[Rfam]
This 63-nucleotide RNA from Bacillus thuringiensis belongs to the Rfam family "DUF3800-VIII RNA". Rfam's curators write: Bacteroidetes, Cyanobacteria, Firmicutes, Planctomycetes (1 example), Proteobacteria, Tenericutes (1 example). NCBI's taxonomy places the organism under Bacteria, Bacillota, Bacillus, Bacillus thuringiensis, Bacillus thuringiensis serovar andalousiensis. Rfam classes the family as a small RNA. It is one of the family's seed sequences.
RNA sequence: AAAGCCUGAUUACUUCGAAGGCUCAAGUUCCACUUGGGUUAUUAGUAGGAGUAAUGGGGCUUU
Numbered sequence: 001a002a003a004g005c006c007u008g009a010u011u012a013c014u015u016c017g018a019a020g021g022c023u024c025a026a027g028u029u030c031c032a033c034u035u036g037g038g039u040u041a042u043u044a045g046u047a048g049g050a051g052u053a054a055u056g057g058g059g060c061u062u063u
Stems, first nucleotide, its partner, number of pairs: 001063007009055008020040009